RNA sequence: UGCCUAAACCUCCGAAUUUAUCGGUGGCACGGCGUCAGAGAAAGCCCGUAGCAAACAUUAACGGUCUCCUGACCGGCACUUGUUUUGCUACGGGUUCACAUCUGAAAGGGUGUGAGGCAACUUCGAAAGGGGUUGUC
Numbered sequence: 001u002g003c004c005u006a007a008a009c010c011u012c013c014g015a016a017u018u019u020a021u022c023g024g025u026g027g028c029a030c031g032g033c034g035u036c037a038g039a040g041a042a043a044g045c046c047c048g049u050a051g052c053a054a055a056c057a058u059u060a061a062c063g064g065u066c067u068c069c070u071g072a073c074c075g076g077c078a079c080u081u082g083u084u085u086u087g088c089u090a091c092g093g094g095u096u097c098a099c100a101u102c103u104g105a106a107a108g109g110g111u112g113u114g115a116g117g118c119a120a121c122u123u124c125g126a127a128a129g130g131g132g133u134u135g136u137c
Stems, first nucleotide, its partner, number of pairs: 001034004009027002012024004045094011057081001059078001062075005096115008116137009
RNA: LOOT RNA